[Rfam]
RNA sequence: ACAUAAGAACAGGGGCGCUGGAGGGCAUCUCCGGCUGAGAUCAAAGCAACUGUGUUUUGAGCACCCUAUACCUGAUCCGGGUAAUGCCGGCGUAGGAAGUUUUGCUGUGGUUAUA
Number, nucleotide and partner (000 for none) at each position: 001a000002c000003a000004u000005a000006a103007g102008a101009a100010c099011a067012g066013g065014g064015g000016c061017g035018c034019u033020g032021g031022a030023g029024g000025g000026c000027a000028u000029c023030u022031c021032c020033g019034g018035c017036u000037g000038a000039g000040a000041u000042c059043a058044a057045a056046g055047c054048a053049a000050c000051u000052g000053u048054g047055u046056u045057u044058u043059g042060a000061g016062c000063a000064c014065c013066c012067u011068a000069u000070a000071c096072c095073u094074g093075a000076u000077c090078c089079g088080g087081g000082u000083a000084a000085u000086g000087c080088c079089g078090g077091c000092g000093u074094a073095g072096g071097a000098a000099g010100u009101u008102u007103u006104g000105c000106u000107g000108u000109g000110g000111u000112u000113a000114u000115a000
RNA: TPP riboswitch aptamer (THI element)
Organism: Subdoligranulum sp. APC924/74